[Rfam]
RNA sequence: UUUAUUGAAUCUCUCUCAAAUGCUUUUAUAGUAAUAGUGUUGGCUUGCCAACUACGACGAUAAACGAAUUUCGUAAUAACCAUUACGGACGUGGGGGCAGUACCCACCACCUCCACCAUUUACAACUUACGGGGGUGAAAUAGGAUCGACGGGUGACUAAAGGCUAUUCUUUCGUUCGGGAUUGUUCCACCGUAACGGGCUAAACUUUAAAUGCUGACGAAAGUUACGCACUUGCUGCAUAAUUAACUUAGGUUAAUUUUAGAAGCACGGUCUGGGGCACCGGGUAACAGAACGCCCCUACU
Numbered sequence: 001u002u003u004a005u006u007g008a009a010u011c012u013c014u015c016u017c018a019a020a021u022g023c024u025u026u027u028a029u030a031g032u033a034a035u036a037g038u039g040u041u042g043g044c045u046u047g048c049c050a051a052c053u054a055c056g057a058c059g060a061u062a063a064a065c066g067a068a069u070u071u072c073g074u075a076a077u078a079a080c081c082a083u084u085a086c087g088g089a090c091g092u093g094g095g096g097g098c099a100g101u102a103c104c105c106a107c108c109a110c111c112u113c114c115a116c117c118a119u120u121u122a123c124a125a126c127u128u129a130c131g132g133g134g135g136u137g138a139a140a141u142a143g144g145a146u147c148g149a150c151g152g153g154u155g156a157c158u159a160a161a162g163g164c165u166a167u168u169c170u171u172u173c174g175u176u177c178g179g180g181a182u183u184g185u186u187c188c189a190c191c192g193u194a195a196c197g198g199g200c201u202a203a204a205c206u207u208u209a210a211a212u213g214c215u216g217a218c219g220a221a222a223g224u225u226a227c228g229c230a231c232u233u234g235c236u237g238c239a240u241a242a243u244u245a246a247c248u249u250a251g252g253u254u255a256a257u258u259u260u261a262g263a264a265g266c267a268c269g270g271u272c273u274g275g276g277g278c279a280c281c282g283g284g285u286a287a288c289a290g291a292a293c294g295c296c297c298c299u300a301c302u
Base pairs, nucleotide, nucleotide: 039052040051041050042049043048056176057175058174059173060172066169067168068167069166072163081155082154083153086151087150091107092106093105094104095103108137109136110135111134112133113132114131177192178191179190182202184200186199187198188197268282269281270280271279274299275298276297277296278294